[Rfam]
RNA sequence: GCAAAUGAAUAGUAAUAAACUCGUAUAAUGGCGGGGAUAUGGCCCGCAAGUUUCUACCGGAUGACCGUGAAUCAUUCGACUACGAGUGAGAAGGAUGCAUGA
Numbered sequence: 001g002c003a004a005a006u007g008a009a010u011a012g013u014a015a016u017a018a019a020c021u022c023g024u025a026u027a028a029u030g031g032c033g034g035g036g037a038u039a040u041g042g043c044c045c046g047c048a049a050g051u052u053u054c055u056a057c058c059g060g061a062u063g064a065c066c067g068u069g070a071a072u073c074a075u076u077c078g079a080c081u082a083c084g085a086g087u088g089a090g091a092a093g094g095a096u097g098c099a100u101g102a
Stems, first nucleotide, its partner, number of pairs: 019087007029049001031047005058078007
RNA: Purine riboswitch aptamer
Organism: Scopulibacillus darangshiensis